[Rfam]
RNA sequence: UGUGAACUUGAUGACUUAAAGGGGGCUGAAAUAAUCUGAUGAAAAAUGCCAUCCAUUUCCUGAUUCACA
Dot-bracket structure: ((((((.........................................................))))))